The family of this 63-nucleotide RNA sequence from Phasianus colchicus is "Small nucleolar RNA Z39". The family's consensus secondary structure was predicted with PFOLD. Its family is annotated with nucleolus and RNA processing in the Gene Ontology. On this family, see Chen et al., Nucleic Acids Res 2003: "The high diversity of snoRNAs in plants: identification and comparative study of 120 snoRNA genes from Oryza sativa".
RNA sequence: GUACAGAUGAUGAGCUUAGCAGUAUGAGUAGAAAUGGUGAUGCUGUAAACGCUUUCUGAUGUG
Dot-bracket structure: .((((......((((....((((((..............)))))).....))).)....))))